[Rfam]
RNA sequence: AAGUGAGGUAGAGGCGCGAUAUUCUAACAGUCUUUAGCGGAGUUCGAGAAAGCAUUGAUGCUAAGGAGAAGGAGAUAUCGCCGAAGUUUAUAAUAUUUCUCAGUAUUAUUUGCUGGGCCUGCAGUUAAGAAUUGCAGGACUGUCUCAAUAAACACAUAUCCCAAGUUUAUUGAGUUGUGCUAUCUCAUUA
Dot-bracket structure: .....((((((....((((((.(((......((((((((...................))))))))......)))))))))...(((..(((((((......)))))))..)))((.((((((((.....)))))))).))..((((((((((...........)))))))))).....)))))).....
RNA: Lysine riboswitch aptamer